A member of the RNA family "TPP riboswitch aptamer (THI element)" from Oscillospiraceae bacterium HV4-5-C5C, 112 nucleotides long. The organism belongs to Oscillospiraceae, within Bacteria.
[Rfam]
RNA sequence: AAACACCGAUCGGGGGGCCGGCUGGAGCCGGCUGAGAUACAGACUGAUACCGCCUGUGACCCGUUGAACCUGUUGGGUAAUGCCAGCGUAGGGAAAGCAGCUGUAUUUCGCC
Numbered sequence: 001a002a003a004c005a006c007c008g009a010u011c012g013g014g015g016g017g018c019c020g021g022c023u024g025g026a027g028c029c030g031g032c033u034g035a036g037a038u039a040c041a042g043a044c045u046g047a048u049a050c051c052g053c054c055u056g057u058g059a060c061c062c063g064u065u066g067a068a069c070c071u072g073u074u075g076g077g078u079a080a081u082g083c084c085a086g087c088g089u090a091g092g093g094a095a096a097g098c099a100g101c102u103g104u105a106u107u108u109c110g111c112c
Stems, first nucleotide, its partner, number of pairs: 006100001008098001010096001011063004016057001017032005040056003069092004073086004